[Rfam]
RNA sequence: ACGACACGAUACCAAGGCGACGUCAGGAAACUGACGGACGGAGGUGCCCUGAUAACAGGGACCGGUCUGAUGACCGCAAACAGUUCAGAGAACUGAUUUGAUACCUCUCAACAACUCAACCUUUUAUCGCCCCGGUGCUCAGGUAUCUGUCA
Number, nucleotide and partner (000 for none) at each position: 001a000002c000003g151004a150005c149006a000007c000008g147009a146010u145011a144012c143013c142014a000015a000016g000017g000018c040019g039020a000021c036022g035023u034024c033025a032026g000027g000028a000029a000030a000031c000032u025033g024034a023035c022036g021037g000038a000039c019040g018041g107042a106043g105044g104045u000046g000047c000048c059049c058050u057051g056052a000053u000054a000055a000056c051057a050058g049059g048060g000061a000062c000063c000064g000065g000066u000067c000068u000069g000070a000071u000072g000073a000074c000075c000076g000077c100078a099079a098080a097081c000082a094083g093084u092085u091086c090087a000088g000089a000090g086091a085092a084093c083094u082095g000096a000097u080098u079099u078100g077101a000102u000103a000104c044105c043106u042107c041108u000109c000110a000111a000112c000113a000114a000115c000116u000117c000118a000119a000120c000121c000122u000123u000124u000125u000126a000127u000128c000129g000130c000131c000132c000133c000134g000135g000136u000137g000138c000139u000140c000141a000142g013143g012144u011145a010146u009147c008148u000149g005150u004151c003152a000
The family of this 152-nucleotide RNA sequence from Escherichia coli is "EFASI RNA". By type it is a small RNA. NCBI's taxonomy places the organism under Bacteria, Pseudomonadota, Enterobacterales, Enterobacteriaceae, Escherichia coli.